[Rfam]
RNA sequence: GAAAAUGAUGAGAUACAUUUGGAAUCUCGUUCGUCUGAACUGCUGUUGAGAAAUCUAAAUCUGACACUU
Numbered sequence: 001g002a003a004a005a006u007g008a009u010g011a012g013a014u015a016c017a018u019u020u021g022g023a024a025u026c027u028c029g030u031u032c033g034u035c036u037g038a039a040c041u042g043c044u045g046u047u048g049a050g051a052a053a054u055c056u057a058a059a060u061c062u063g064a065c066a067c068u069u
Stems, first nucleotide, its partner, number of pairs: 025051005032045002035042001
This 69-nucleotide sequence from Pleuronectes platessa belongs to the Rfam family "Small nucleolar RNA SNORD30".
The match comes from Rfam's covariance-model search (54 bits).
On this family, see Tycowski et al., Nature 1996: "A mammalian gene with introns instead of exons generating stable RNA products".
The family's RNA type in Rfam is C/D-box small nucleolar RNA.
The family is grouped with related families in Rfam's "SNORD30 clan".
Rfam links the family to the GO terms RNA processing and nucleolus.